[Rfam]
RNA sequence: CUGCGCCGCCCUCCUUGGGCGUUUCCUCCCUAGACUCCGGCCGCCUCUUUUGAGUGCGGCCUUUUUUUUGGUUCCA
Numbered sequence: 001c002u003g004c005g006c007c008g009c010c011c012u013c014c015u016u017g018g019g020c021g022u023u024u025c026c027u028c029c030c031u032a033g034a035c036u037c038c039g040g041c042c043g044c045c046u047c048u049u050u051u052g053a054g055u056g057c058g059g060c061c062u063u064u065u066u067u068u069u070g071g072u073u074c075c076a
Base pairs, nucleotide, nucleotide: 008020009019010018011017039061040060041059042058043057044056045054046053047052
Dot-bracket structure: .......((((.....))))..................(((((((((....))).))))))...............
A member of the RNA family "Makes More Granules Regulator RNA (mmgR)" from Roseibium sp. RKSG952, 76 nucleotides long. It is annotated as a small RNA.